[Rfam]
Nucleotides: 274
Stems, first nucleotide, its partner, number of pairs: 014058006059174004064169002067166001192268013206224006
Number, partner (000 for none) and nucleotide at each position: 001000a002000c003000a004000c005000g006000a007000g008000a009000a010000a011000g012000g013000a014058g015057g016056u017055g018054g019053u020000c021000c022000u023000c024000a025000g026000u027000u028000g029000a030000a031000u032000a033000u034000c035000g036000a037000c038000a039000g040000g041000a042000c043000u044000c045000g046000u047000g048000a049000g050000g051000u052000g053019g054018c055017u056016g057015u058014c059174c060173g061172c062171u063000a064169g065168c066000g067166g068000a069000c070000g071000a072000a073000g074000c075000u076000g077000c078000g079000a080000a081000a082000g083000c084000u085000c086000g087000u088000g089000a090000c091000g092000a093000c094000c095000a096000g097000a098000c099000a100000a101000a102000c103000c104000g105000u106000c107000a108000c109000g110000g111000u112000g113000u114000g115000c116000c117000g118000c119000g120000c121000c122000c123000c124000g125000u126000c127000g128000a129000c130000g131000c132000c133000g134000u135000c136000g137000g138000c139000g140000u141000c142000c143000g144000g145000g146000c147000c148000g149000c150000g151000a152000c153000a154000g155000g156000a157000c158000a159000g160000u161000g162000g163000a164000g165000c166067c167000u168065g169064c170000c171062g172061g173060c174059g175000a176000a177000u178000a179000c180000c181000a182000g183000g184000c185000a186000g187000u188000c189000a190000c191000c192268g193267g194266a195265c196264c197263c198262c199261c200260g201259g202258c203257g204256c205000c206224c207223c208222g209221a210220g211219c212000a213000a214000g215000u216000c217000c218000g219211g220210c221209u222208c223207g224206g225000g226000c227000c228000g229000a230000c231000a232000a233000c234000g235000g236000c237000u238000g239000a240000c241000g242000a243000c244000g245000u246000u247000g248000u249000c250000g251000g252000a253000g254000a255000c256204g257203c258202g259201c260200c261199g262198g263197g264196g265195g266194u267193u268192u269000c270000c271000c272000g273000u274000a
A member of the RNA family "Actinobacteria sRNA Ms_IGR-5" from Amycolatopsis acidiphila, 274 nucleotides long. The source organism's lineage runs through Bacteria, Bacillati, Actinomycetes, Pseudonocardiaceae and Amycolatopsis. Pairs were carried over by alignment from the consensus structure. It scores 86 bits against the family's covariance model. On this family, see Li et al., RNA 2013: "Identification of small RNAs in Mycobacterium smegmatis using heterologous Hfq".